[Rfam]
RNA: Streptococcus sRNA SpF59 (ldcC RNA)
RNA sequence: UGACCACCCGCUCGGGUUAAGGCCAUACGGACAGCCGGGUCAACUGCCGA
Dot-bracket structure: (((((((((....))))....................)))))........
Numbered sequence: 001u002g003a004c005c006a007c008c009c010g011c012u013c014g015g016g017u018u019a020a021g022g023c024c025a026u027a028c029g030g031a032c033a034g035c036c037g038g039g040u041c042a043a044c045u046g047c048c049g050a
Stems, first nucleotide, its partner, number of pairs: 001042005006017004